[Rfam]
RNA sequence: CUAGCGCAGGUGGGAGAGUCCGGCAUUCGAUGCCGGCGCCGAAGGAGCAACCGCCCCGGAAUCUCUCAGGCCAACGGACCGUCUGCGUGGU
Numbered sequence: 001c002u003a004g005c006g007c008a009g010g011u012g013g014g015a016g017a018g019u020c021c022g023g024c025a026u027u028c029g030a031u032g033c034c035g036g037c038g039c040c041g042a043a044g045g046a047g048c049a050a051c052c053g054c055c056c057c058g059g060a061a062u063c064u065c066u067c068a069g070g071c072c073a074a075c076g077g078a079c080c081g082u083c084u085g086c087g088u089g090g091u
Stems, first nucleotide, its partner, number of pairs: 006086008020036004038071003041067002045065003051059002
Glycine riboswitch aptamer: a 91-nucleotide RNA from Spiribacter curvatus. Rfam describes the family as follows. This family represents the bacterial glycine riboswitch. The base pairs follow the family's consensus structure.